[Rfam]
RNA sequence: UAUUAGGUUGGUACAAAAGUAAUUGUGGUUUUUGCCAUUACUUUCAAUGGUAAAAACCACAAUUACUUUUGUACCAACCUAACA
Numbered sequence: 001u002a003u004u005a006g007g008u009u010g011g012u013a014c015a016a017a018a019g020u021a022a023u024u025g026u027g028g029u030u031u032u033u034g035c036c037a038u039u040a041c042u043u044u045c046a047a048u049g050g051u052a053a054a055a056a057c058c059a060c061a062a063u064u065a066c067u068u069u070u071g072u073a074c075c076a077a078c079c080u081a082a083c084a
Stems, first nucleotide, its partner, number of pairs: 001084001003082037
RNA: mir-548 microRNA precursor family